[Rfam]
RNA sequence: GUAAAGCGGUGUGCGUGGUGCCCGUCUGCGUUUAGUGCCGUCACCGGUCUGUGUUUUACAGUCUGUGACCGUGCUCACACCACACCUGCAGCCACAGAGCCACUGGAGAUCAUAGUACUGGCCUAGUGACGUCAUCACGACCCAUACCACUGGUCAGCCUCCAUUCUCUCCUACACAA
Numbered sequence: 001g002u003a004a005a006g007c008g009g010u011g012u013g014c015g016u017g018g019u020g021c022c023c024g025u026c027u028g029c030g031u032u033u034a035g036u037g038c039c040g041u042c043a044c045c046g047g048u049c050u051g052u053g054u055u056u057u058a059c060a061g062u063c064u065g066u067g068a069c070c071g072u073g074c075u076c077a078c079a080c081c082a083c084a085c086c087u088g089c090a091g092c093c094a095c096a097g098a099g100c101c102a103c104u105g106g107a108g109a110u111c112a113u114a115g116u117a118c119u120g121g122c123c124u125a126g127u128g129a130c131g132u133c134a135u136c137a138c139g140a141c142c143c144a145u146a147c148c149a150c151u152g153g154u155c156a157g158c159c160u161c162c163a164u165u166c167u168c169u170c171c172u173a174c175a176c177a178a
Stems, first nucleotide, its partner, number of pairs: 013089003030080002033077001035075001036073003040069002043066001045065003050060003105171005118157006125151004131141003
Small nucleolar RNA SNORA23: a 178-nucleotide RNA sequence from Ameiurus melas. The organism belongs to Ameiurus, within Eukaryota. A reference for the family is Huttenhofer et al. (2001), "RNomics: an experimental approach that identifies 201 candidates for novel, small, non-messenger RNAs in mouse", EMBO J. Rfam 15.1 lists 1,092 matches to the family in 632 species. From the family's description: The members of this family belong to the H/ACA class of snoRNAs which are thought to guide the sites of modification of uridines to pseudouridines. This family includes human snoRNA ACA23 (SNORA23) and mouse snoMBI-1. ACA23 is predicted to guide the pseudouridylation of residue U3737 and U4331 of 28S rRNA. The match comes from Rfam's covariance-model search (110 bits). The family's RNA type in Rfam is H/ACA-box small nucleolar RNA. Its family is annotated with nucleolus and RNA processing in the Gene Ontology.